[Rfam]
Nucleotides: 052
Stems, first nucleotide, its partner, number of pairs: 001050011013038005018029003
Number, partner (000 for none) and nucleotide at each position: 001050u002049g003048a004047g005046a006045u007044g008043a009042a010041a011040u012000c013038a014037g015036c016035g017034u018029u019028u020027a021000g022000a023000c024000a025000a026000g027020u028019a029018a030000u031000u032000u033000u034017a035016c036015g037014c038013u039000a040011a041010u042009u043008u044007c045006a046005u047004c048003u049002c050001a051000u052000u